[Rfam]
Nucleotides: 103
Stems, first nucleotide, its partner, number of pairs: 001103008013041001015040003021031003025079001027077002042071004047067002050062003075095001080092005
Number, partner (000 for none) and nucleotide at each position: 001103u002102u003101c004100u005099u006098a007097u008096c009000a010000a011000g012000a013041g014000u015040g016039g017038c018000g019000g020000a021031g022030g023029g024000a025079c026000u027077g028076g029023c030022c031021c032000a033000a034000u035000g036000a037000a038017g039016c040015c041013c042071g043070g044069c045068a046000a047067c048066c049000g050062u051061a052060u053000c054000c055000a056000a057000a058000a059000g060052a061051u062050a063000a064000a065000a066048g067047g068045u069044g070043c071042c072000a073000a074000a075095u076028c077027c078000u079025g080092c081091a082090g083089a084088g085000u086000a087000a088084u089083u090082c091081u092080g093000g094000g095075a096008g097007a098006u099005a100004a101003g102002a103001a
A member of the RNA family "SAM riboswitch aptamer (S box leader)" from Thermoflavimicrobium daqui, 103 nucleotides long. The source organism's lineage runs through Bacteria, Bacillati, Bacilli, Caryophanales and Thermoflavimicrobium. It scores 98 bits against the family's covariance model.